[Rfam]
RNA sequence: CUUGUGGUUAAUGAUGUAAAUUCUUUCCCCGACUUAUCGACUAUGGUGAUACAAUUAAGCAAUUUAAGCCAAUUAUAUCUGAAACCACAAU
Numbered sequence: 001c002u003u004g005u006g007g008u009u010a011a012u013g014a015u016g017u018a019a020a021u022u023c024u025u026u027c028c029c030c031g032a033c034u035u036a037u038c039g040a041c042u043a044u045g046g047u048g049a050u051a052c053a054a055u056u057a058a059g060c061a062a063u064u065u066a067a068g069c070c071a072a073u074u075a076u077a078u079c080u081g082a083a084a085c086c087a088c089a090a091u
Stems, first nucleotide, its partner, number of pairs: 002090008
This 91-nucleotide sequence from Sparus aurata belongs to the Rfam family "Small nucleolar SNORD12/SNORD106". It scores 52 bits against the family's covariance model. Clan: SNORD12 clan. The family's consensus secondary structure was predicted with RNAalifold. Gene Ontology terms of the family: nucleolus and RNA processing.